[Rfam]
A member of the RNA family "DUF3800-XI RNA", 47 nucleotides long. The base pairs follow the family's consensus structure, which is taken from published work. Rfam's curators put it in the seed alignment. Rfam describes the family as follows. Actinobacteria, Firmicutes, Proteobacteria, Spirochaetes (1 example). Rfam classes the family as a small RNA.
RNA sequence: UGGGCUGGUCGAAAGACCCAGGUCCAUCUCUGGCGAGGAAGUUCCUC
Numbered sequence: 001u002g003g004g005c006u007g008g009u010c011g012a013a014a015g016a017c018c019c020a021g022g023u024c025c026a027u028c029u030c031u032g033g034c035g036a037g038g039a040a041g042u043u044c045c046u047c
Stems, first nucleotide, its partner, number of pairs: 001026006007018004